[Rfam]
RNA sequence: UAGUGAGUAUAUGAGGGAGUAGGAUGUAUGGUUGUUACAGAGAACUAAAAUCUUUUCUCACAACAGACAG
Dot-bracket structure: ..((..((.(.(((((((...((((...(((((.((...)).)))))..))))))))))).)))..))..
Numbered sequence: 001u002a003g004u005g006a007g008u009a010u011a012u013g014a015g016g017g018a019g020u021a022g023g024a025u026g027u028a029u030g031g032u033u034g035u036u037a038c039a040g041a042g043a044a045c046u047a048a049a050a051u052c053u054u055u056u057c058u059c060a061c062a063a064c065a066g067a068c069a070g
Stems, first nucleotide, its partner, number of pairs: 003068002007064002010062001012060007022053004029047005035041002